RNA: Actinobacteria sRNA Ms_IGR-5
RNA sequence: ACACAGGAGAGGAGGUGGUCCCGCGUUGAAUAGCUGCAGGACGUGUGAGGUGGCUGUCCGCUAGCACCACGUUUGCUCCGGGGCUCUGCUCUACGGCGUAGGCCCCCGGCGACGGUCGUGGAAACCGGUGUGGUGCCGGUGAGUUCCAGGCGGUCACCCGUGAUCCCCGGGUCCGAGCCUGUCCAGCUCGGUGACGCACCUGAUGGUGCGGCCCGGGGAUCACGCAUGUC
Numbered sequence: 001a002c003a004c005a006g007g008a009g010a011g012g013a014g015g016u017g018g019u020c021c022c023g024c025g026u027u028g029a030a031u032a033g034c035u036g037c038a039g040g041a042c043g044u045g046u047g048a049g050g051u052g053g054c055u056g057u058c059c060g061c062u063a064g065c066a067c068c069a070c071g072u073u074u075g076c077u078c079c080g081g082g083g084c085u086c087u088g089c090u091c092u093a094c095g096g097c098g099u100a101g102g103c104c105c106c107c108g109g110c111g112a113c114g115g116u117c118g119u120g121g122a123a124a125c126c127g128g129u130g131u132g133g134u135g136c137c138g139g140u141g142a143g144u145u146c147c148a149g150g151c152g153g154u155c156a157c158c159c160g161u162g163a164u165c166c167c168c169g170g171g172u173c174c175g176a177g178c179c180u181g182u183c184c185a186g187c188u189c190g191g192u193g194a195c196g197c198a199c200c201u202g203a204u205g206g207u208g209c210g211g212c213c214c215g216g217g218g219a220u221c222a223c224g225c226a227u228g229u230c
Base pairs, nucleotide, nucleotide: 014058015057016056017055018054019053059141060140061139062138064136065135067133068132069131070130071129072128073127159224160223161222162221163220164219165218166217167216168215169214170213171212173191174190175189176188177187178186